[Rfam]
RNA sequence: ACAUAAGGCUGGGGGAGCAAUUGCUGAGAACGGCUGCAGAGCAGCCGGACCCUUUUCACCUGACCCGGAUAAUACCGGCGUAGGGAAGCAUCGCAGCGUUUCA
Numbered sequence: 001a002c003a004u005a006a007g008g009c010u011g012g013g014g015g016a017g018c019a020a021u022u023g024c025u026g027a028g029a030a031c032g033g034c035u036g037c038a039g040a041g042c043a044g045c046c047g048g049a050c051c052c053u054u055u056u057c058a059c060c061u062g063a064c065c066c067g068g069a070u071a072a073u074a075c076c077g078g079c080g081u082a083g084g085g086a087a088g089c090a091u092c093g094c095a096g097c098g099u100u101u102c103a
Stems, first nucleotide, its partner, number of pairs: 006091001008089003011053004017024002031047007059084004065078004
RNA: TPP riboswitch aptamer (THI element)
Organism: Lachnospiraceae bacterium NK3A20